[Rfam]
Shown here is a 96-nucleotide RNA from Niallia endozanthoxylica, a member of the family "pan motif". The organism belongs to Niallia, within Bacteria.

RNA sequence: UGGGCGGUAUCAUUGUUGUGAACUGCACCAAUGUAGAAGUACUGAAUUAAUAAUAAUAUCUGCCUAGAUCCGAAAAAAUUGGACCGGGACAGAGGG
Numbered sequence: 001u002g003g004g005c006g007g008u009a010u011c012a013u014u015g016u017u018g019u020g021a022a023c024u025g026c027a028c029c030a031a032u033g034u035a036g037a038a039g040u041a042c043u044g045a046a047u048u049a050a051u052a053a054u055a056a057u058a059u060c061u062g063c064c065u066a067g068a069u070c071c072g073a074a075a076a077a078a079u080u081g082g083a084c085c086g087g088g089a090c091a092g093a094g095g096g
Base pairs, nucleotide, nucleotide: 001030002029003028004026005025006024007023008022010021011020060092061091062090063088064087065086067084069083070082071081072080073079
The family's RNA type in Rfam is cis-regulatory element. A search with the family's covariance model found it, with a score of 65 bits.